[Rfam]
RNA sequence: UGGCAGGAACCCGUAGAUCCGAACUUGUGUCUCAUUUAAUAUUCACAAGUUUGAAUUUACCGGGACCUGCUGG
Numbered sequence: 001u002g003g004c005a006g007g008a009a010c011c012c013g014u015a016g017a018u019c020c021g022a023a024c025u026u027g028u029g030u031c032u033c034a035u036u037u038a039a040u041a042u043u044c045a046c047a048a049g050u051u052u053g054a055a056u057u058u059a060c061c062g063g064g065a066c067c068u069g070c071u072g073g
Base pairs, nucleotide, nucleotide: 002071003070004069005068006067007066010063011062015058016057017056018055020053021052022051023050024049025048026047027046028045029044

A member of the RNA family "mir-10 microRNA precursor family" from Ignelater luminosus, 73 nucleotides long. Gene Ontology terms of the family: miRNA-mediated post-transcriptional gene silencing and RISC complex. A reference for the family is Lee and Ambros (2001), "An extensive class of small RNAs in Caenorhabditis elegans", Science. The match comes from Rfam's covariance-model search (55 bits). The base pairs follow the family's consensus structure, which was predicted with PFOLD. NCBI's taxonomy places the organism under Eukaryota, Opisthokonta, Bilateria, Ecdysozoa, Ignelater.